[Rfam]
RNA sequence: AUUGGCGGAAAGAAGAUAGCGGGAAAGACACGCAGGACCGAAAAGUGUCCUAUAUGAAGUCCCGGGAAGGUCUGAGAGAAGGUCCUUGUGGGUCCUAGGAGGACGCCCCAUCUGAGAGGAGGGGAGGAUGUACCAGAAAAUGGUCCCCCGCUCUAAUGCCGGGGUUGGGAAACAUCCUCGGCCUGCUGGGAAGCUGAGUGCGAUUAUCGAAAGAGCCAACACAAUUCAGACUAGUCUUCAGCCAAU
Numbered sequence: 001a002u003u004g005g006c007g008g009a010a011a012g013a014a015g016a017u018a019g020c021g022g023g024a025a026a027g028a029c030a031c032g033c034a035g036g037a038c039c040g041a042a043a044a045g046u047g048u049c050c051u052a053u054a055u056g057a058a059g060u061c062c063c064g065g066g067a068a069g070g071u072c073u074g075a076g077a078g079a080a081g082g083u084c085c086u087u088g089u090g091g092g093u094c095c096u097a098g099g100a101g102g103a104c105g106c107c108c109c110a111u112c113u114g115a116g117a118g119g120a121g122g123g124g125a126g127g128a129u130g131u132a133c134c135a136g137a138a139a140a141u142g143g144u145c146c147c148c149c150g151c152u153c154u155a156a157u158g159c160c161g162g163g164g165u166u167g168g169g170a171a172a173c174a175u176c177c178u179c180g181g182c183c184u185g186c187u188g189g190g191a192a193g194c195u196g197a198g199u200g201c202g203a204u205u206a207u208c209g210a211a212a213g214a215g216c217c218a219a220c221a222c223a224a225u226u227c228a229g230a231c232u233a234g235u236c237u238u239c240a241g242c243c244a245a246u
Stems, first nucleotide, its partner, number of pairs: 001246004008239003019205001021063004034051005039045001072229005081183004092104004108123002111120003124179007145164003

Description
A member of the RNA family "Nuclear RNase P" from Diploscapter pachys, 246 nucleotides long. Rfam 15.1 lists 3,848 matches to the family in 1,862 species. Taxonomically the source falls in Diploscapter (Eukaryota, Eumetazoa, Rhabditomorpha, Rhabditidae). It is annotated as a ribozyme.